[Rfam]
Annotation
A member of the RNA family "L31-Actinobacteria ribosomal protein leader" from Streptomyces albus, 47 nucleotides long. NCBI's taxonomy places the organism under Bacteria, Actinomycetota, Streptomycetaceae, Streptomyces, Streptomyces albus.

RNA sequence: UCGGCCCCGGUUCACGGCCGCGCAAUCCGCGCGGACGACCCGGAGCC
Numbered sequence: 001u002c003g004g005c006c007c008c009g010g011u012u013c014a015c016g017g018c019c020g021c022g023c024a025a026u027c028c029g030c031g032c033g034g035a036c037g038a039c040c041c042g043g044a045g046c047c
Base pairs, nucleotide, nucleotide: 003047004046005045007043008042009041010040015037016036018034019033020032021031022030023029